[Rfam]
Nucleotides: 120
Stems, first nucleotide, its partner, number of pairs: 009030003012026005035089006045081003048058003062078005090110008
Number, partner (000 for none) and nucleotide at each position: 001000u002000u003000a004000a005000u006000u007000u008000a009030c010029a011028g012026g013025c014024g015023a016022a017000u018000u019000a020000a021000u022016u023015u024014c025013g026012c027000a028011c029010u030009g031000c032000c033000g034000a035089c036088a037087c038086a039085a040084g041000g042000a043000a044000u045081a046080c047079g048058a049057u050056a051000a052000u053000a054000a055000u056050u057049a058048u059000u060000a061000a062078g063077c064076g065075u066074a067000a068000u069000g070000u071000a072000a073000g074066u075065a076064c077063g078062c079047c080046g081045u082000c083000c084040c085039u086038u087037g088036u089035g090110g091109g092108c093107c094106a095105c096104c097103u098000c099000c100000a101000a102000a103097a104096g105095g106094u107093g108092g109091u110090u111000u112000u113000u114000u115000u116000a117000u118000u119000u120000a

The record is a 120-nucleotide sequence from Enterococcus faecium, which matches "DUF3800-I RNA" in Rfam. The source organism's lineage runs through Bacteria, Bacillati, Bacillota, Enterococcus and Enterococcus faecium. Actinobacteria, Firmicutes, Fusobacteria, Proteobacteria (1 example), Tenericutes (2 examples). Rfam classes the family as a small RNA.